[Rfam]
RNA: drz-agam-1 ribozyme
RNA sequence: GAUCUAUCAAACCCUAUCUUCACCUCCACGUGGUGACCGCUGGGAGCUCUUUCGUAACGAAAAACUGCAGACGGAGAAGG
Numbered sequence: 001g002a003u004c005u006a007u008c009a010a011a012c013c014c015u016a017u018c019u020u021c022a023c024c025u026c027c028a029c030g031u032g033g034u035g036a037c038c039g040c041u042g043g044g045a046g047c048u049c050u051u052u053c054g055u056a057a058c059g060a061a062a063a064a065c066u067g068c069a070g071a072c073g074g075a076g077a078a079g080g
Stems, first nucleotide, its partner, number of pairs: 013080003017076001019074002022034003046066001048064001050062005